RNA: Group II catalytic intron D1-D4-5
Organism: Epulopiscium sp. Nele67-Bin004
RNA sequence: GACAACUAAUAAUUCGAGUAGUAGAAUGAUGGGGUAACGCCCUGAAAUGCUACCCUUAAUACUCCGAAUAGCGUUUUAUUGAGUAAACAAUAAGAGGUUAUAAGCUCGGUGAAGUCGGCUGAGAGCGUACCCAAGUACUAGAAAGUUUAGUAACGGAAAAGUGAACCAGAGGUGGUCAAGUACGUGAUAGGUCGGAGGUCUAUAAA
Numbered sequence: 001g002a003c004a005a006c007u008a009a010u011a012a013u014u015c016g017a018g019u020a021g022u023a024g025a026a027u028g029a030u031g032g033g034g035u036a037a038c039g040c041c042c043u044g045a046a047a048u049g050c051u052a053c054c055c056u057u058a059a060u061a062c063u064c065c066g067a068a069u070a071g072c073g074u075u076u077u078a079u080u081g082a083g084u085a086a087a088c089a090a091u092a093a094g095a096g097g098u099u100a101u102a103a104g105c106u107c108g109g110u111g112a113a114g115u116c117g118g119c120u121g122a123g124a125g126c127g128u129a130c131c132c133a134a135g136u137a138c139u140a141g142a143a144a145g146u147u148u149a150g151u152a153a154c155g156g157a158a159a160a161g162u163g164a165a166c167c168a169g170a171g172g173u174g175g176u177c178a179a180g181u182a183c184g185u186g187a188u189a190g191g192u193c194g195g196a197g198g199u200c201u202a203u204a205a206a
Stems, first nucleotide, its partner, number of pairs: 018053006031043004054198004064109004068101005074095008116194005125185006131156002162178002165176004